Background
Shown here is a 73-nucleotide sequence from Granulicella sp. 5B5, a member of the family "Fluoride riboswitch aptamer (crcB RNA motif)". A search with the family's covariance model found it, with a score of 39 bits. The organism belongs to Granulicella, within Bacteria.
RNA sequence: UAAUCUCAGGGUGAUGGAGUUCACCCGAACCGCCAUGGCCUGCUUUGCCAUCGCUGAUGACUCCUGGCAGGGG
Numbered sequence: 001u002a003a004u005c006u007c008a009g010g011g012u013g014a015u016g017g018a019g020u021u022c023a024c025c026c027g028a029a030c031c032g033c034c035a036u037g038g039c040c041u042g043c044u045u046u047g048c049c050a051u052c053g054c055u056g057a058u059g060a061c062u063c064c065u066g067g068c069a070g071g072g073g
Stems, first nucleotide, its partner, number of pairs: 010025004016064006032054002